[Rfam]
The family of this 232-nucleotide RNA from Lachnospiraceae bacterium 10-1 is "Group II catalytic intron D1-D4-6". A reference for the family is Bonen and Vogel (2001), "The ins and outs of group II introns", Trends Genet.
RNA sequence: AAAAUCCUGUCGGGAAAGGUUUAAUCAACCGCCCGUACCAAGUCCUUGGAGUCGAAGUGGCAACAUCAGAUUUAAGCAUAGGACAGAGGCAACAGAGCCGAAACGAAAGUGAAGUGAUAGAGCUUGCAAAUUAGUAUGAGGUCGGAAAUGGUCGAUGCGUUUGCGUUCGUAGCAGACAACAUCUCUGUAACCGCUAUGGUGAGGGACAGGGGCAUCCCCCAGUCCGAGAGCU
Numbered sequence: 001a002a003a004a005u006c007c008u009g010u011c012g013g014g015a016a017a018g019g020u021u022u023a024a025u026c027a028a029c030c031g032c033c034c035g036u037a038c039c040a041a042g043u044c045c046u047u048g049g050a051g052u053c054g055a056a057g058u059g060g061c062a063a064c065a066u067c068a069g070a071u072u073u074a075a076g077c078a079u080a081g082g083a084c085a086g087a088g089g090c091a092a093c094a095g096a097g098c099c100g101a102a103a104c105g106a107a108a109g110u111g112a113a114g115u116g117a118u119a120g121a122g123c124u125u126g127c128a129a130a131u132u133a134g135u136a137u138g139a140g141g142u143c144g145g146a147a148a149u150g151g152u153c154g155a156u157g158c159g160u161u162u163g164c165g166u167u168c169g170u171a172g173c174a175g176a177c178a179a180c181a182u183c184u185c186u187g188u189a190a191c192c193g194c195u196a197u198g199g200u201g202a203g204g205g206a207c208a209g210g211g212g213c214a215u216c217c218c219c220c221a222g223u224c225c226g227a228g229a230g231c232u
Stems, first nucleotide, its partner, number of pairs: 011035004018030004022202001024200002039086001042084001044082003047078002049073005056066001058065002120224001122223003126219001144217003149214002151177003156171004182212007191204002

Group II introns are found in rRNA, tRNA and mRNA of organelles in fungi, plants and protists, and also in mRNA in bacteria. Gene Ontology term of the family: Group II intron splicing. Lineage of the source: Bacteria > Bacillati > Clostridia > Lachnospirales > Lachnospiraceae.